[Rfam]
RNA sequence: GUCUUCGUGGCUCAGUUGGUUAGAGCGUCGGUCUCAUAACAUGAUGUGUUAAUGAUCGAAUGCAAGAUUCGAGUAAUCCGAAGGCCGUGAGUUCGAGUCUCACCGAGGACA
Numbered sequence: 001g002u003c004u005u006c007g008u009g010g011c012u013c014a015g016u017u018g019g020u021u022a023g024a025g026c027g028u029c030g031g032u033c034u035c036a037u038a039a040c041a042u043g044a045u046g047u048g049u050u051a052a053u054g055a056u057c058g059a060a061u062g063c064a065a066g067a068u069u070c071g072a073g074u075a076a077u078c079c080g081a082a083g084g085c086c087g088u089g090a091g092u093u094c095g096a097g098u099c100u101c102a103c104c105g106a107g108g109a110c111a
Base pairs, nucleotide, nucleotide: 001110002109003108004107005106006105007104010026011025012024013023028081029080030079031078087103088102089101090100091099
Dot-bracket structure: (((((((..((((.........)))).((((..............................................)))).....(((((.......)))))))))))).

Shown here is a 111-nucleotide RNA sequence from Tolypocladium capitatum, a member of the family "tRNA". The family's consensus secondary structure is taken from published work.